[Rfam]
RNA sequence: GCCCUUUGAAGCCCAGCUCUUCACUCGGUAGCUCUGUGAUUACCCGAUCAAAGCUGCCAGAUGAAGAGCUGUGCUUCCGGGG
Numbered sequence: 001g002c003c004c005u006u007u008g009a010a011g012c013c014c015a016g017c018u019c020u021u022c023a024c025u026c027g028g029u030a031g032c033u034c035u036g037u038g039a040u041u042a043c044c045c046g047a048u049c050a051a052a053g054c055u056g057c058c059a060g061a062u063g064a065a066g067a068g069c070u071g072u073g074c075u076u077c078c079g080g081g082g
Stems, first nucleotide, its partner, number of pairs: 005079001010075003017068006027057001030055004035050002
A member of the RNA family "mir-22 microRNA precursor family" from Branchiostoma lanceolatum, 82 nucleotides long. It scores 53 bits against the family's covariance model.